This 176-nucleotide sequence from Chitinimonas arctica belongs to the Rfam family "Manganese Mn2+ riboswitch aptamer (yybP-ykoY)". The family has 29 seed sequences and 1,126 matches in Rfam 15.1. The source organism's lineage runs through Bacteria, Pseudomonadati, Betaproteobacteria, Chitinibacteraceae and Chitinimonas. On this family, see Argaman et al., Curr Biol 2001: "Novel small RNA-encoding genes in the intergenic regions of Escherichia coli".

RNA sequence: GCACCCGUCUUUGGGGAGUAGCCGUUCCGCCGCCCCGGCGGAAGUCCAUAUCAACAUACUUGUCGUUGCGACGACAUGGUAUGGAUAGCGAGAUCGCCCGAUCCCGCCUGGCAAGACCAUAGACGCAAGUAGCGGCCAAGGGGCCGCGCUAUUUGCGUCUAUCGGUUGCCGCCAGC
Number, nucleotide and partner (000 for none) at each position: 001g000002c000003a000004c000005c000006c000007g000008u000009c000010u000011u000012u000013g000014g000015g000016g000017a000018g000019u000020a000021g000022c000023c000024g000025u000026u042027c041028c040029g000030c000031c000032g000033c000034c000035c000036c000037g000038g000039c000040g028041g027042a026043a000044g086045u085046c084047c083048a082049u081050a080051u079052c078053a077054a000055c000056a000057u000058a000059c000060u000061u076062g075063u074064c073065g072066u000067u000068g000069c000070g000071a000072c065073g064074a063075c062076a061077u053078g052079g051080u050081a049082u048083g047084g046085a045086u044087a000088g000089c000090g000091a000092g000093a000094u000095c000096g000097c000098c000099c000100g000101a000102u000103c000104c000105c000106g000107c000108c000109u000110g000111g000112c000113a000114a000115g000116a000117c000118c000119a000120u000121a000122g000123a000124c000125g000126c000127a000128a000129g000130u000131a000132g000133c000134g000135g000136c000137c000138a000139a000140g000141g000142g000143g000144c000145c000146g000147c000148g000149c000150u000151a000152u000153u000154u000155g000156c000157g000158u000159c000160u000161a000162u000163c000164g000165g000166u000167u000168g000169c000170c000171g000172c000173c000174a000175g000176c000